[Rfam]
RNA sequence: GAAACACCCCUAUGGAACAGGACUUGCUUCAGUGGGUCUUUGGUGCUCACUGAGUCUACACCUUGAGUGUGUCACU
Numbered sequence: 001g002a003a004a005c006a007c008c009c010c011u012a013u014g015g016a017a018c019a020g021g022a023c024u025u026g027c028u029u030c031a032g033u034g035g036g037u038c039u040u041u042g043g044u045g046c047u048c049a050c051u052g053a054g055u056c057u058a059c060a061c062c063u064u065g066a067g068u069g070u071g072u073c074a075c076u
Base pairs, nucleotide, nucleotide: 001075004072005071006070007069009067011065012064014062015061019057021056022055023054029053030052031051032050033049034048035047036046038043

The record is a 76-nucleotide RNA sequence from Myotis lucifugus, which matches "mir-9229 microRNA precursor family" in Rfam. The family has 7 seed sequences and 27,225 matches in Rfam 15.1. A search with the family's covariance model found it, with a score of 72 bits. NCBI's taxonomy places the organism under Eukaryota, Craniata, Euteleostomi, Amniota, Myotis. Its family is annotated with RISC complex and miRNA-mediated post-transcriptional gene silencing in the Gene Ontology.